[Rfam]
A member of the RNA family "Plastid-clpP 5UTR RNA" from Olea europaea, 69 nucleotides long.
The family's RNA type in Rfam is cis-regulatory element.
About the family: Plastid clpP is a non-coding RNA (ncRNA) recognised in plastids. It was found in the prime untranslated region (5UTR) of a protease complex subunit (clpP) in plastids, suggesting a posible cis-regulatory function.
The base pairs follow the family's consensus structure, which was predicted with LocARNA.
For this family Rfam cites "Retrograde signaling in plants: A critical review focusing on the GUN pathway and beyond" (Richter et al., Plant Commun, 2023).

RNA sequence: AAUUUCGUUAGUCAGAACAAAGAGAAGCAAAUUUAUUCUAUACCCGAUAAGUACCAAUACGCAAUGGGU
Numbered sequence: 001a002a003u004u005u006c007g008u009u010a011g012u013c014a015g016a017a018c019a020a021a022g023a024g025a026a027g028c029a030a031a032u033u034u035a036u037u038c039u040a041u042a043c044c045c046g047a048u049a050a051g052u053a054c055c056a057a058u059a060c061g062c063a064a065u066g067g068g069u
Stems, first nucleotide, its partner, number of pairs: 003022002007018003043068003051060003